[Rfam]
RNA sequence: GUGGCUGGACGUGUAGUCGGGAAACCUUCAGGAACCUUUACCAUCCGGUAAAGGGAGUUCUUCGGGACUCUAAGUCA
Numbered sequence: 001g002u003g004g005c006u007g008g009a010c011g012u013g014u015a016g017u018c019g020g021g022a023a024a025c026c027u028u029c030a031g032g033a034a035c036c037u038u039u040a041c042c043a044u045c046c047g048g049u050a051a052a053g054g055g056a057g058u059u060c061u062u063c064g065g066g067a068c069u070c071u072a073a074g075u076c077a
Base pairs, nucleotide, nucleotide: 035054036053037052038051039050040049041048042047055070056069057068058067059066060065
The record is a 77-nucleotide sequence from Legionella tunisiensis, which matches "RAGATH-32 RNA" in Rfam. Rfam 15.1 lists 38 matches to the family in 31 species. The source organism's lineage runs through Bacteria, Pseudomonadati, Gammaproteobacteria, Legionellales and Legionella.